[Rfam]
RNA sequence: CUUUUAUUAAAUGAAGGCAUCCAUUGAAACCAAUACUUUUGUGAGAGGGAUGUCUGAUGAAAUGUAAAAG
Numbered sequence: 001c002u003u004u005u006a007u008u009a010a011a012u013g014a015a016g017g018c019a020u021c022c023a024u025u026g027a028a029a030c031c032a033a034u035a036c037u038u039u040u041g042u043g044a045g046a047g048g049g050a051u052g053u054c055u056g057a058u059g060a061a062a063u064g065u066a067a068a069a070g
Base pairs, nucleotide, nucleotide: 001070002069003068004067005066016054017053018052019051020050021049022048024046025045031041032040033039
Rfam assigns this 70-nucleotide RNA from Coregonus sp. 'balchen' to the family "Selenocysteine insertion sequence 1".
Gene Ontology term of the family: selenocysteine incorporation.
Rfam classes the family as a cis-regulatory element.
The family's consensus secondary structure is taken from published work.